[Rfam]
RNA sequence: GUCGAGCUAUGUAACGUGAGCUUGUAACUUGAGUGAGGGCAAUAAGGUGAUUGAACUUGGGCUUGGCCUAAUCUGGUAUGGGCUUGUGUUGCACAUACUGACUCGCCCGCUCCAAGUUGGGAGUUGGGCUAUGUGGAACGGGCGAAGGCCUCUGUGCCACUUGGUUCCUAGAGUGGAGGACACCCCGUCAGGCUGGUUUCACAGAGCAAGCGAAAACCUCCCUCUCGACAGUGGAAGGAUAACAAGACAGGUGCUCCAUGAGUCCACAAUGGGCCAGAUGGGCCCAGCCCAAAGAACAAUCACUUUU
Numbered sequence: 001g002u003c004g005a006g007c008u009a010u011g012u013a014a015c016g017u018g019a020g021c022u023u024g025u026a027a028c029u030u031g032a033g034u035g036a037g038g039g040c041a042a043u044a045a046g047g048u049g050a051u052u053g054a055a056c057u058u059g060g061g062c063u064u065g066g067c068c069u070a071a072u073c074u075g076g077u078a079u080g081g082g083c084u085u086g087u088g089u090u091g092c093a094c095a096u097a098c099u100g101a102c103u104c105g106c107c108c109g110c111u112c113c114a115a116g117u118u119g120g121g122a123g124u125u126g127g128g129c130u131a132u133g134u135g136g137a138a139c140g141g142g143c144g145a146a147g148g149c150c151u152c153u154g155u156g157c158c159a160c161u162u163g164g165u166u167c168c169u170a171g172a173g174u175g176g177a178g179g180a181c182a183c184c185c186c187g188u189c190a191g192g193c194u195g196g197u198u199u200c201a202c203a204g205a206g207c208a209a210g211c212g213a214a215a216a217c218c219u220c221c222c223u224c225u226c227g228a229c230a231g232u233g234g235a236a237g238g239a240u241a242a243c244a245a246g247a248c249a250g251g252u253g254c255u256c257c258a259u260g261a262g263u264c265c266a267c268a269a270u271g272g273g274c275c276a277g278a279u280g281g282g283c284c285c286a287g288c289c290c291a292a293a294g295a296a297c298a299a300u301c302a303c304u305u306u307u
Stems, first nucleotide, its partner, number of pairs: 001040003004023005028037003044306010056294002058291003062287002065284003069281001071279007080265009091254001093252002098250003102246002105243001107238002111235004116229007126167006133160004138155003141150003168173001175221005186212003193204003